[Rfam]
RNA sequence: UGCAGGAUGGAGAAAGACAUCAUUUGGAGUCCCUAUGAUAUGCCUAUAGUGAUUACUAGAACCAGCUACUUCUGACUGAA
Numbered sequence: 001u002g003c004a005g006g007a008u009g010g011a012g013a014a015a016g017a018c019a020u021c022a023u024u025u026g027g028a029g030u031c032c033c034u035a036u037g038a039u040a041u042g043c044c045u046a047u048a049g050u051g052a053u054u055a056c057u058a059g060a061a062c063c064a065g066c067u068a069c070u071u072c073u074g075a076c077u078g079a080a
Stems, first nucleotide, its partner, number of pairs: 001080001003078003

The family of this 80-nucleotide sequence from Capsicum annuum is "Small nucleolar RNA R12". The base pairs follow the family's consensus structure, which was predicted with PFOLD. Rfam 15.1 lists 992 matches to the family in 220 species. The source organism's lineage runs through Eukaryota, Embryophyta, Gunneridae, Solanales and Capsicum. The family's RNA type in Rfam is C/D-box small nucleolar RNA.